[Rfam]
HgcE RNA (Pab105): a 132-nucleotide sequence from Thermococcus barophilus. Its family is annotated with RNA processing in the Gene Ontology. The match comes from Rfam's covariance-model search (105 bits).
RNA sequence: GGGCAGCUAUGAGCGCGAGGGACGAUGCCGGGCGGACAGGGCUUGGCCUCCGGGGCCGCUUGAGGAAAGCCGACAACGGCUGACGAUGAAGGCGGUGGGAUAUGCCAAGCCCAUAUUUUUUAAGUUUUUCCU
Numbered sequence: 001g002g003g004c005a006g007c008u009a010u011g012a013g014c015g016c017g018a019g020g021g022a023c024g025a026u027g028c029c030g031g032g033c034g035g036a037c038a039g040g041g042c043u044u045g046g047c048c049u050c051c052g053g054g055g056c057c058g059c060u061u062g063a064g065g066a067a068a069g070c071c072g073a074c075a076a077c078g079g080c081u082g083a084c085g086a087u088g089a090a091g092g093c094g095g096u097g098g099g100a101u102a103u104g105c106c107a108a109g110c111c112c113a114u115a116u117u118u119u120u121u122a123a124g125u126u127u128u129u130c131c132u
Stems, first nucleotide, its partner, number of pairs: 039112009050099002056095006069080003

NCBI's taxonomy places the organism under Archaea, Methanobacteriati, Thermococci, Thermococcales, Thermococcus barophilus.
A reference for the family is Klein et al. (2002), "Noncoding RNA genes identified in AT-rich hyperthermophiles", Proc Natl Acad Sci U S A.
From the family's description: The HgcE ncRNA gene was identified computationally in AT-rich hyperthermophiles. The genes were named hgcA through hgcG ('high GC').It was also identified as a part of Pab105 H/ACA snoRNA with rRNA targets.